[Rfam]
RNA sequence: CCCUGCGAGGGGCGCUGCGACGGGACGCACAGGCGUCCUCGCUAGGCUCGCGAGGGUGGAUCACUAACAAUCAACUGCGCCCGUUCAUC
Numbered sequence: 001c002c003c004u005g006c007g008a009g010g011g012g013c014g015c016u017g018c019g020a021c022g023g024g025a026c027g028c029a030c031a032g033g034c035g036u037c038c039u040c041g042c043u044a045g046g047c048u049c050g051c052g053a054g055g056g057u058g059g060a061u062c063a064c065u066a067a068c069a070a071u072c073a074a075c076u077g078c079g080c081c082c083g084u085u086c087a088u089c
Base pairs, nucleotide, nucleotide: 002054004052005051006050007049008048021041022040023039024038025036026035
The record is an 89-nucleotide RNA sequence from Limnoglobus roseus, which matches "SAH (S-adenosyl-L-homocysteine) riboswitch aptamer" in Rfam. The source organism's lineage runs through Bacteria, Pseudomonadati, Gemmatales, Gemmataceae and Limnoglobus. Its family is annotated with S-adenosylhomocysteine metabolic process and regulation of gene expression in the Gene Ontology. It scores 49 bits against the family's covariance model.